[Rfam]
RNA sequence: GAAGGACCGAUGAUGUAAUAAGAAAUAAACUGCGUUAUCUAUCUGCAAUUUCCCAAAUGGAAUUGAAGAUUAAUUUGUCUUCCUGAGGUCCUGU
Numbered sequence: 001g002a003a004g005g006a007c008c009g010a011u012g013a014u015g016u017a018a019u020a021a022g023a024a025a026u027a028a029a030c031u032g033c034g035u036u037a038u039c040u041a042u043c044u045g046c047a048a049u050u051u052c053c054c055a056a057a058u059g060g061a062a063u064u065g066a067a068g069a070u071u072a073a074u075u076u077g078u079c080u081u082c083c084u085g086a087g088g089u090c091c092u093g094u
Stems, first nucleotide, its partner, number of pairs: 001094001003092005